[Rfam]
RNA sequence: AAAGUUGUUGCGGUUAAAAAGCUCGUAGUCGAAUUUGUGUCCCGCGCCGCCGGUUCAUCGCUCGCGGUGUUUAACUGGCGUGUCCGCGGGACGUCCUGCCGGUGGACUUAGCCCUCUCGGGGGCGGUCCAACUUCAAAUCCCACCGCGGUGCUCUUUACCGAGUGUCGAGGUGGGCCGGCACGUUUACUUUGAACAAAUUAGAGUGCUUAAAGCAGGCUAAAACUUCGCCUGAAUACUGUGUGCAUGGAAUAAUGGAAUAGGACCUCGGUUCUAUUUUGUUGGUUUUCGGAACUCCGAGGUAAUGAUUAAUAGGAACGGAUGGGGGCAUUCGUAUUGCGACGUUAGAGGUGAAAUUCUUGGAUCGUCGCAAGACGGACAGAAGCGAAAGCAUUUGCCAAAAACGCUUUCAUUGAUCAAGAACGAAAGUUAGAGGUUCGAAGGCGAUCAGAUACCGCCCUAGUUCUAACCAUAAACGAUGCCAGCUAGCGAUCCGCCGACGUUCCUCCGAUGACUCGGCGGGCAGCUUCCGGGAAACCAAAGCUUUUGGGUUCCGGGGGAAGUAUGGUUGCAAAGCUGAAACUUAAAGGAAU
Numbered sequence: 001a002a003a004g005u006u007g008u009u010g011c012g013g014u015u016a017a018a019a020a021g022c023u024c025g026u027a028g029u030c031g032a033a034u035u036u037g038u039g040u041c042c043c044g045c046g047c048c049g050c051c052g053g054u055u056c057a058u059c060g061c062u063c064g065c066g067g068u069g070u071u072u073a074a075c076u077g078g079c080g081u082g083u084c085c086g087c088g089g090g091a092c093g094u095c096c097u098g099c100c101g102g103u104g105g106a107c108u109u110a111g112c113c114c115u116c117u118c119g120g121g122g123g124c125g126g127u128c129c130a131a132c133u134u135c136a137a138a139u140c141c142c143a144c145c146g147c148g149g150u151g152c153u154c155u156u157u158a159c160c161g162a163g164u165g166u167c168g169a170g171g172u173g174g175g176c177c178g179g180c181a182c183g184u185u186u187a188c189u190u191u192g193a194a195c196a197a198a199u200u201a202g203a204g205u206g207c208u209u210a211a212a213g214c215a216g217g218c219u220a221a222a223a224c225u226u227c228g229c230c231u232g233a234a235u236a237c238u239g240u241g242u243g244c245a246u247g248g249a250a251u252a253a254u255g256g257a258a259u260a261g262g263a264c265c266u267c268g269g270u271u272c273u274a275u276u277u278u279g280u281u282g283g284u285u286u287u288c289g290g291a292a293c294u295c296c297g298a299g300g301u302a303a304u305g306a307u308u309a310a311u312a313g314g315a316a317c318g319g320a321u322g323g324g325g326g327c328a329u330u331c332g333u334a335u336u337g338c339g340a341c342g343u344u345a346g347a348g349g350u351g352a353a354a355u356u357c358u359u360g361g362a363u364c365g366u367c368g369c370a371a372g373a374c375g376g377a378c379a380g381a382a383g384c385g386a387a388a389g390c391a392u393u394u395g396c397c398a399a400a401a402a403c404g405c406u407u408u409c410a411u412u413g414a415u416c417a418a419g420a421a422c423g424a425a426a427g428u429u430a431g432a433g434g435u436u437c438g439a440a441g442g443c444g445a446u447c448a449g450a451u452a453c454c455g456c457c458c459u460a461g462u463u464c465u466a467a468c469c470a471u472a473a474a475c476g477a478u479g480c481c482a483g484c485u486a487g488c489g490a491u492c493c494g495c496c497g498a499c500g501u502u503c504c505u506c507c508g509a510u511g512a513c514u515c516g517g518c519g520g521g522c523a524g525c526u527u528c529c530g531g532g533a534a535a536c537c538a539a540a541g542c543u544u545u546u547g548g549g550u551u552c553c554g555g556g557g558g559a560a561g562u563a564u565g566g567u568u569g570c571a572a573a574g575c576u577g578a579a580a581c582u583u584a585a586a587g588g589a590a591u
Stems, first nucleotide, its partner, number of pairs: 011554003019551001021422001023420002028415003313409004317404002321400001325397004331375002335371008346357003383390002427468006437461001441457004479550003482543003486526003491521008500513003530537002556583003565576004
RNA: Eukaryotic small subunit ribosomal RNA, nucleotides 629 to 1219
Organism: Oryctes borbonicus